[Rfam]
RNA: mir-1805 microRNA precursor family
RNA sequence: GGAAUGUUCUGGGAGCUGUAGCCUUUCAAACAGAGCUGUUGCAUACCUGUAUUGGAAUACUACAGUUCCCUGAACUUCC
Numbered sequence: 001g002g003a004a005u006g007u008u009c010u011g012g013g014a015g016c017u018g019u020a021g022c023c024u025u026u027c028a029a030a031c032a033g034a035g036c037u038g039u040u041g042c043a044u045a046c047c048u049g050u051a052u053u054g055g056a057a058u059a060c061u062a063c064a065g066u067u068c069c070c071u072g073a074a075c076u077u078c079c
Base pairs, nucleotide, nucleotide: 001079002078003077004076007074008073009072012069013068014067015066016065017064018063019062020061021060024057025056026055027054028053029052030050031049032048033047